Shown here is a 109-nucleotide sequence from Faecalibacterium sp. An121, a member of the family "c-di-GMP-I riboswitch aptamer". From the family's description: GEMM was predicted in a large-scale screen for bacterial structured RNA regulatory elements. Rfam 15.1 lists 5,092 matches to the family in 1,772 species.

RNA sequence: AUAUCGUUUUGGCAAACCCAUAGAAAUGUGGGGACGCAAAGUUGGAAGCCUUAAACGACGCAGAUCAAGCGGGACUGGAGAUGCGGCGAAAGGUGGUUCGGCCGCAAUU
Dot-bracket structure: ...........((...((((((....))))))...))...(((.((((((((.....................................)))))..)))))).......